The family of this 387-nucleotide RNA sequence from an SAR116 cluster bacterium is "Bacterial RNase P class A".
It scores 310 bits against the family's covariance model.
By type it is a ribozyme.
RNA sequence: UCAGAGAGCUGGAUAGCUGCUUGGCUAACAUUUUAAAUGGAAGGUGAGAGGAAAGUCCGGGCUUCACAGGAUCAGGAUGCUGGAUAACUUCCAGCGAGGGCGACCUUAGGGAAAGUGCCGCAGAAAUUAAACCGCCUUAGCUGAAAAGAUAGGGUAAGGGUGAAAUGGUGCGGUAAGAGCGCACCGCAGUUUUGGUAACAAAACUGGUCAGGGUAAACCCCAUCCGAAGCAAGAUCAUAUAGGGACAUACGCGUCUAGACGCACUGGCGGUCCUGCCAGAUUGUCCGGGUAGAUCGCUAAAGCCUAUUGGUAACAAUACGGUUCAGAUGAAUAGCUAUCAAUGAAGAUUUCUUCUAACAGAACCCGGCUUAUAGGCUCUCUGAACAG
Number, nucleotide and partner (000 for none) at each position: 001u383002c382003a381004g380005a379006g378007a377008g376009c375010u374011g372012g339013a338014u337015a336016g335017c334018u333019g000020c048021u047022u046023g045024g000025c043026u042027a000028a000029c000030a000031u000032u000033u000034u000035a000036a000037a000038u000039g000040g000041a000042a026043g025044g000045u023046g022047a021048g020049a000050g000051g000052a000053a370054a369055g368056u000057c367058c366059g365060g364061g363062c229063u228064u227065c226066a000067c000068a000069g000070g273071a000072u000073c270074a000075g225076g224077a223078u222079g221080c094081u093082g092083g091084a090085u000086a000087a000088c000089u000090u084091c083092c082093a081094g080095c109096g107097a106098g105099g104100g000101c000102g000103a000104c099105c098106u097107u096108a000109g095110g220111g219112a000113a000114a000115g218116u217117g214118c213119c212120g000121c000122a000123g000124a000125a000126a000127u000128u000129a000130a000131a000132c159133c158134g155135c154136c153137u152138u151139a150140g000141c148142u147143g000144a000145a000146a000147a142148g141149a000150u139151a138152g137153g136154g135155u134156a000157a000158g133159g132160g000161u000162g000163a000164a000165a000166u000167g185168g184169u183170g182171c181172g180173g000174u000175a000176a000177g000178a000179g000180c172181g171182c170183a169184c168185c167186g209187c206188a205189g204190u203191u202192u201193u200194g199195g000196u000197a000198a000199c194200a193201a192202a191203a190204c189205u188206g187207g000208u000209c186210a000211g000212g119213g118214u117215a000216a000217a116218c115219c111220c110221c079222a078223u077224c076225c075226g065227a064228a063229g062230c000231a000232a000233g295234a294235u293236c292237a000238u000239a000240u000241a000242g000243g286244g285245a284246c283247a282248u000249a000250c000251g000252c000253g000254u000255c000256u000257a000258g000259a000260c000261g000262c000263a000264c279265u278266g277267g276268c275269g000270g073271u000272c000273c070274u000275g268276c267277c266278a265279g264280a000281u000282u247283g246284u245285c244286c243287g000288g000289g000290u000291a000292g236293a235294u234295c233296g000297c000298u000299a000300a000301a000302g322303c321304c320305u318306a317307u316308u315309g314310g000311u000312a000313a000314c309315a308316a307317u306318a305319c000320g304321g303322u302323u000324c000325a000326g000327a000328u000329g000330a000331a000332u000333a018334g017335c016336u015337a014338u013339c012340a000341a000342u000343g000344a000345a000346g000347a000348u000349u000350u000351c000352u000353u000354c000355u000356a000357a000358c000359a000360g000361a000362a000363c061364c060365c059366g058367g057368c055369u054370u053371a000372u011373a000374g010375g009376c008377u007378c006379u005380c004381u003382g002383a001384a000385c000386a000387g000